[Rfam]
RNA sequence: GGUUUCUAUUGGUGUAAAACCACCCACCUCAAUUCAAGAUGAGAAGUAAUUCUCCAUUGGUAGCAAAUGGUUAUCCAUUAAGCGGAGGAAAUCUUA
Dot-bracket structure: .........(((.......))).............................((((((.((((((.....)))))).)).....)))).........
The family of this 96-nucleotide sequence from Aster spathulifolius is "Plastid-rps12 3UTR RNA". It is one of the family's seed sequences. The family has 1,299 seed sequences and 1,710 matches in Rfam 15.1. NCBI's taxonomy places the organism under Eukaryota, Gunneridae, campanulids, Asterales, Aster. About the family: Plastid rpl20 is a non-coding RNA (ncRNA) recognised in plastids. It was found in the three prime untranslated region (3UTR) of rps12 gene, its 3UTR location sugest a role in transcript maduration.